The record is a 75-nucleotide RNA sequence from Streptomyces sp. F-1, which matches "ASpks TB sRNA" in Rfam.

RNA sequence: CUUCAGCGAGCCGAGCCACAACGGCCGGUCCCCGGCGCGUUCCCUGCCGUAGGUGGCCAGCAGUGCCUGCGCCUC
Numbered sequence: 001c002u003u004c005a006g007c008g009a010g011c012c013g014a015g016c017c018a019c020a021a022c023g024g025c026c027g028g029u030c031c032c033c034g035g036c037g038c039g040u041u042c043c044c045u046g047c048c049g050u051a052g053g054u055g056g057c058c059a060g061c062a063g064u065g066c067c068u069g070c071g072c073c074u075c
Stems, first nucleotide, its partner, number of pairs: 015025003031071001033069001038065002043060001047056003
On this family, see Arnvig and Young, Mol Microbiol 2009: "Identification of small RNAs in Mycobacterium tuberculosis".
The family's consensus secondary structure is taken from published work.